A member of the RNA family "Small nucleolar RNA SNORD18" from Brassica oleracea, 77 nucleotides long. For this family Rfam cites "Two different snoRNAs are encoded in introns of amphibian and human L1 ribosomal protein genes" (Prislei et al., Nucleic Acids Res, 1993). The organism belongs to Brassica oleracea, within Eukaryota. The match comes from Rfam's covariance-model search (43 bits).

[Rfam]
RNA sequence: GAGAUGUGAUGAGCAACAAAUUGGUCCGUGUUUCUGAUUUAACCGUGACCGAAAAUUUUAAACCAAACUCUGAUCUC
Numbered sequence: 001g002a003g004a005u006g007u008g009a010u011g012a013g014c015a016a017c018a019a020a021u022u023g024g025u026c027c028g029u030g031u032u033u034c035u036g037a038u039u040u041a042a043c044c045g046u047g048a049c050c051g052a053a054a055a056u057u058u059u060a061a062a063c064c065a066a067a068c069u070c071u072g073a074u075c076u077c
Stems, first nucleotide, its partner, number of pairs: 001077004